[Rfam]
RNA sequence: AUCGAGUAGGGGGCCCACAGUAGGAGCGUUCUCAUCAUGGUCCCUGCCAGAUUCUGAUCUGCAAAUCCGACU
Numbered sequence: 001a002u003c004g005a006g007u008a009g010g011g012g013g014c015c016c017a018c019a020g021u022a023g024g025a026g027c028g029u030u031c032u033c034a035u036c037a038u039g040g041u042c043c044c045u046g047c048c049a050g051a052u053u054c055u056g057a058u059c060u061g062c063a064a065a066u067c068c069g070a071c072u
Base pairs, nucleotide, nucleotide: 010044011043012042013041015040016039019072020071021070023068024067025066026038028036048061049060050059051058052057
RNA: Mammalian CPEB3 ribozyme
Organism: Eptatretus burgeri